[Rfam]
RNA: Small nucleolar RNA SNORA26
Organism: Chanos chanos
RNA sequence: UUGCCCAUUUAAGACCUUCAGUGUCCUAAAUGAUCAACACAGGGGGGAAGAAUAACUCUCUCAAAAACCUGAGGUGAAGGUUACUGAUUCCUAGCCUCGGAUCCUGUCGGGAGAAACACAA
Numbered sequence: 001u002u003g004c005c006c007a008u009u010u011a012a013g014a015c016c017u018u019c020a021g022u023g024u025c026c027u028a029a030a031u032g033a034u035c036a037a038c039a040c041a042g043g044g045g046g047g048a049a050g051a052a053u054a055a056c057u058c059u060c061u062c063a064a065a066a067a068c069c070u071g072a073g074g075u076g077a078a079g080g081u082u083a084c085u086g087a088u089u090c091c092u093a094g095c096c097u098c099g100g101a102u103c104c105u106g107u108c109g110g111g112a113g114a115a116a117c118a119c120a121a
Base pairs, nucleotide, nucleotide: 002049004047005046006045008043009042010041017033058113059112060111061110062109069100070099071098072097073096074095075094078092079091080090083088